[Rfam]
RNA: Selenocysteine insertion sequence 1
RNA sequence: CCGCAUCUCCAUGAAGGCCUGGCCCGAAAGCCCCCGCUGUGGGGCGGGCCAGGCCUGAUCCUGCCCGG
Numbered sequence: 001c002c003g004c005a006u007c008u009c010c011a012u013g014a015a016g017g018c019c020u021g022g023c024c025c026g027a028a029a030g031c032c033c034c035c036g037c038u039g040u041g042g043g044g045c046g047g048g049c050c051a052g053g054c055c056u057g058a059u060c061c062u063g064c065c066c067g068g
Stems, first nucleotide, its partner, number of pairs: 004068001016055010031044003
Dot-bracket structure: ...(...........((((((((((.....(((........))).))))))))))............)